[Rfam]
RNA: Group II catalytic intron D1-D4-3
RNA sequence: GUUGUCGCGAGGCAGGGUCUGGAAGAAGCCGAACCCAAAGCUGCGGGGCGAUGAACAAGAACUGGAUAUGAGGCGUGAUACAUCCGGGGCGAGCGGGCACGUGACCGCGAAGCCCUCGGCUUUGGCAUCCUGCGUCGCCCUACCUCCUGCAUCCCUGCAGUCGUCCAUCUACGAUCGGGAUGUGUUUUGUAAAUCCGGCGUUCGCGCAGCGAAAGAAACGUGU
Number, nucleotide and partner (000 for none) at each position: 001g000002u015003u014004g013005u012006c011007g000008c000009g000010a000011g006012g005013c004014a003015g002016g000017g000018u000019c000020u000021g000022g000023a000024a000025g000026a000027a000028g223029c222030c000031g000032a000033a000034c000035c000036c215037a000038a000039a000040g210041c209042u208043g207044c206045g205046g203047g202048g201049c200050g199051a000052u000053g000054a000055a000056c000057a000058a000059g000060a000061a000062c198063u197064g196065g195066a194067u193068a000069u000070g000071a000072g000073g190074c189075g188076u000077g186078a185079u184080a183081c182082a181083u180084c000085c000086g000087g115088g114089g113090c112091g000092a000093g108094c107095g106096g105097g000098c000099a000100c000101g000102u000103g000104a000105c096106c095107g094108c093109g000110a000111a000112g090113c089114c088115c087116u000117c000118g000119g000120c000121u000122u000123u000124g000125g000126c000127a000128u000129c000130c000131u000132g000133c000134g000135u000136c000137g000138c000139c000140c000141u000142a000143c000144c000145u000146c000147c000148u000149g000150c000151a000152u000153c000154c000155c000156u000157g000158c000159a000160g000161u000162c000163g000164u000165c000166c000167a000168u000169c000170u000171a000172c000173g000174a000175u000176c000177g000178g000179g000180a083181u082182g081183u080184g079185u078186u077187u000188u075189g074190u073191a000192a000193a067194u066195c065196c064197g063198g062199c050200g049201u048202u047203c046204g000205c045206g044207c043208a042209g041210c040211g000212a000213a000214a000215g036216a000217a000218a000219c000220g000221u000222g029223u028